[Rfam]
RNA sequence: CCCCUGAAUAGAAAAGAGGGGAUACUCUUGCCAGAGAGGUAAGGGCCGGAGUUGGUCAGCUUCGGAAAAUAUAUUAACAAGGAUGCAGAGACCACAUCCAAUCC
Numbered sequence: 001c002c003c004c005u006g007a008a009u010a011g012a013a014a015a016g017a018g019g020g021g022a023u024a025c026u027c028u029u030g031c032c033a034g035a036g037a038g039g040u041a042a043g044g045g046c047c048g049g050a051g052u053u054g055g056u057c058a059g060c061u062u063c064g065g066a067a068a069a070u071a072u073a074u075u076a077a078c079a080a081g082g083a084u085g086c087a088g089a090g091a092c093c094a095c096a097u098c099c100a101a102u103c104c
Stems, first nucleotide, its partner, number of pairs: 001021005026044006046065007077102001081099005
RNA: engA RNA